[Rfam]
RNA sequence: GUUGGCCGUGGAGAUGGCAUUCCUCCCUUAACUGCCGAUUCGUUCGGCUGAUGAUGCCUACACACCC
Numbered sequence: 001g002u003u004g005g006c007c008g009u010g011g012a013g014a015u016g017g018c019a020u021u022c023c024u025c026c027c028u029u030a031a032c033u034g035c036c037g038a039u040u041c042g043u044u045c046g047g048c049u050g051a052u053g054a055u056g057c058c059u060a061c062a063c064a065c066c067c
Stems, first nucleotide, its partner, number of pairs: 010026004016058006034048004

Fluoride riboswitch aptamer (crcB RNA motif): a 67-nucleotide RNA from Burkholderia ambifaria. Rfam's curators put it in the seed alignment.